Background
The record is a 392-nucleotide RNA sequence from Effusibacillus dendaii, which matches "Bacterial RNase P class B" in Rfam. Lineage of the source: Bacteria > Bacillati > Bacillota > Alicyclobacillaceae > Effusibacillus. Ribonuclease P (RNase P) is a ubiquitous endoribonuclease, found in archaea, bacteria and eukarya as well as chloroplasts and mitochondria. Its best characterised activity is the generation of mature 5'-ends of tRNAs by cleaving the 5'-leader elements of precursor-tRNAs. The literature on the family includes a 1998 paper in Annu Rev Biochem by Frank and Pace, "Ribonuclease P: unity and diversity in a tRNA processing ribozyme". A search with the family's covariance model found it, with a score of 305 bits.

[Rfam]
RNA sequence: UUAAGUGAGUAAUCGCGCUGAUCUUUGCAUCAGUGAGGAAAGUCCACACUCGCCCGGGCUGUGAUGCCUGGAGUUUGGAUGCCUGACGAAUCCAUAAGUCAGGGCAAUCUGGUGUAACAACUGGGUUGACGGCGGUGAACGGAGCUACGUCUGCUGUCAGAUAUGCUCCUAUUAGCCUGAAAGUGCCACAGUGACGAAGUCUUCUUGGAAACGAGAAGAGUGGAACGAGGUAAACCCCAUCUGCGAGAAACCCAAAUUACGGUAGGGGAACUGCCCGAAAGGAAUUCGAACGGACGGGCGGAUCGCCAUUAGGCGAUAGUUAGAUGAUUACUGCUCAAGUGCGAGGUUGGCGACCGUUUGCAGCACGAGAGAACAGAAUGUGGCUUACAGCU
Number, nucleotide and partner (000 for none) at each position: 001u000002u000003a000004a392005g391006u390007g388008a332009g331010u330011a329012a328013u327014c326015g000016c035017g034018c033019u032020g031021a030022u000023c000024u000025u000026u000027g000028c000029a000030u021031c020032a019033g018034u017035g016036a000037g000038g000039a000040a386041a385042g384043u000044c383045c382046a381047c380048a379049c247050u246051c245052g244053c243054c071055c070056g069057g068058g067059c066060u000061g000062u000063g000064a000065u000066g059067c058068c057069u056070g055071g054072a000073g000074u000075u000076u000077g242078g241079a240080u239081g238082c103083c102084u101085g100086a099087c098088g000089a000090a000091u000092c000093c000094a000095u000096a000097a000098g087099u086100c085101a084102g083103g082104g130105c128106a127107a126108u125109c124110u123111g122112g121113u120114g000115u000116a000117a000118c000119a000120a113121c112122u111123g110124g109125g108126u107127u106128g105129a000130c104131g237132g236133c000134g177135g176136u175137g000138a000139a000140c000141g000142g168143a167144g166145c165146u000147a000148c000149g162150u161151c160152u159153g158154c000155u000156g000157u000158c153159a152160g151161a150162u149163a000164u000165g145166c144167u143168c142169c000170u000171a000172u000173u000174a000175g136176c135177c134178u000179g000180a000181a000182a000183g235184u234185g231186c230187c229188a000189c000190a000191g000192u000193g000194a000195c000196g000197a000198a000199g000200u219201c218202u217203u216204c215205u214206u213207g212208g000209a000210a000211a000212c207213g206214a205215g204216a203217a202218g201219a200220g000221u000222g000223g000224a000225a000226c000227g000228a000229g187230g186231u185232a000233a000234a184235c183236c132237c131238c081239a080240u079241c078242u077243g053244c052245g051246a050247g049248a000249a000250a000251c267252c266253c265254a000255a000256a000257u000258u000259a000260c000261g000262g000263u000264a000265g253266g252267g251268g000269a000270a000271c301272u300273g299274c298275c297276c296277g295278a000279a000280a000281g000282g000283a000284a000285u000286u000287c000288g000289a000290a000291c000292g000293g000294a000295c277296g276297g275298g274299c273300g272301g271302a317303u316304c315305g314306c313307c312308a000309u000310u000311a000312g307313g306314c305315g304316a303317u302318a000319g000320u000321u000322a000323g000324a000325u000326g014327a013328u012329u011330a010331c009332u008333g000334c371335u370336c369337a000338a000339g366340u365341g364342c363343g000344a000345g000346g000347u000348u000349g000350g000351c000352g000353a000354c000355c000356g000357u000358u000359u000360g000361c000362a000363g342364c341365a340366c339367g000368a000369g336370a335371g334372a000373a000374c000375a000376g000377a000378a000379u048380g047381u046382g045383g044384c042385u041386u040387a000388c007389a000390g006391c005392u004